[Rfam]
RNA sequence: GGUGAACAUCGACCCACUCGGAUCGUCCGGCACGUACCUGCCGGUGGGAAGGAAAAU
Numbered sequence: 001g002g003u004g005a006a007c008a009u010c011g012a013c014c015c016a017c018u019c020g021g022a023u024c025g026u027c028c029g030g031c032a033c034g035u036a037c038c039u040g041c042c043g044g045u046g047g048g049a050a051g052g053a054a055a056a057u
Stems, first nucleotide, its partner, number of pairs: 010051001013048004027044006

This 57-nucleotide sequence from Schaalia turicensis belongs to the Rfam family "msiK RNA". By type it is a cis-regulatory element. Taxonomically the source falls in Schaalia turicensis (Bacteria, Bacillati, Actinomycetota, Actinomycetaceae). Rfam 15.1 lists 1,374 matches to the family in 1,364 species.